[Rfam]
RNA: Ribosomal protein L20 leader
Organism: Salipaludibacillus agaradhaerens
RNA sequence: CAAAGCAAGAAGAAGCGCCCGCUUCUCACCUAGUCGGUCAUUAAACUGGCAGGUUAUGAUUUUUUAAUCUUAACACGUAUGUAGAAGUGUGGGCGCAGAAUGCACCCACACUUUUUUGUCACG
Numbered sequence: 001c002a003a004a005g006c007a008a009g010a011a012g013a014a015g016c017g018c019c020c021g022c023u024u025c026u027c028a029c030c031u032a033g034u035c036g037g038u039c040a041u042u043a044a045a046c047u048g049g050c051a052g053g054u055u056a057u058g059a060u061u062u063u064u065u066a067a068u069c070u071u072a073a074c075a076c077g078u079a080u081g082u083a084g085a086a087g088u089g090u091g092g093g094c095g096c097a098g099a100a101u102g103c104a105c106c107c108a109c110a111c112u113u114u115u116u117u118g119u120c121a122c123g
Base pairs, nucleotide, nucleotide: 011026012025013024014023015022016021028054029053030052034049035048036047037046038045088110089109090108091107092106093105095103096102097101